Cyano-1 RNA: a 78-nucleotide RNA from Cyanobacteria bacterium FACHB-DQ100. A search with the family's covariance model found it, with a score of 50 bits. By type it is a small RNA.
RNA sequence: AGGAGUGUGAGGAGAUUGAUUCAAGUUUCAAAAGCCUUUGAAGUCGAAACACGGCAAGACGUUCAAAGGCUUUUGUUU
Numbered sequence: 001a002g003g004a005g006u007g008u009g010a011g012g013a014g015a016u017u018g019a020u021u022c023a024a025g026u027u028u029c030a031a032a033a034g035c036c037u038u039u040g041a042a043g044u045c046g047a048a049a050c051a052c053g054g055c056a057a058g059a060c061g062u063u064c065a066a067a068g069g070c071u072u073u074u075g076u077u078u
Stems, first nucleotide, its partner, number of pairs: 015074001031073005038066005043060003